[Rfam]
RNA sequence: CAGCUGUUGUUUGUACUGGACCCUGAAUUGGAAACAGUAACUUGGAUUCUGUAACACUUCAUGGGUCCCGUAGUGACAACUAUGCUG
Numbered sequence: 001c002a003g004c005u006g007u008u009g010u011u012u013g014u015a016c017u018g019g020a021c022c023c024u025g026a027a028u029u030g031g032a033a034a035c036a037g038u039a040a041c042u043u044g045g046a047u048u049c050u051g052u053a054a055c056a057c058u059u060c061a062u063g064g065g066u067c068c069c070g071u072a073g074u075g076a077c078a079a080c081u082a083u084g085c086u087g
Base pairs, nucleotide, nucleotide: 002086003085004084006080007079008078009077010076014072015071016070018068019067020066021065022064023063024061025060026059027058029056030055034052035051036050
Rfam assigns this 87-nucleotide sequence from Lymphocryptovirus humangamma4 to the family "mir-BART9 microRNA precursor family".
The sequence is in the family's curated seed alignment.
The source organism's lineage runs through Viruses, Heunggongvirae, Peploviricota, Herviviricetes and Lymphocryptovirus humangamma4.
The family has 2 seed sequences and 7 matches in Rfam 15.1.
Rfam links the family to the GO terms miRNA-mediated post-transcriptional gene silencing and RISC complex.
The base pairs follow the family's consensus structure, which was predicted with RNAalifold.